[Rfam]
RNA sequence: CGAACGUUUGAACCGUCGUUCUACCGAGCAAUAUCACCCGCUCGGUGGAAGAUCUUCCGUUUGUCGU
Numbered sequence: 001c002g003a004a005c006g007u008u009u010g011a012a013c014c015g016u017c018g019u020u021c022u023a024c025c026g027a028g029c030a031a032u033a034u035c036a037c038c039c040g041c042u043c044g045g046u047g048g049a050a051g052a053u054c055u056u057c058c059g060u061u062u063g064u065c066g067u
Stems, first nucleotide, its partner, number of pairs: 004064003010058001012056001015053003020049010
RNA: mir-2774 microRNA precursor family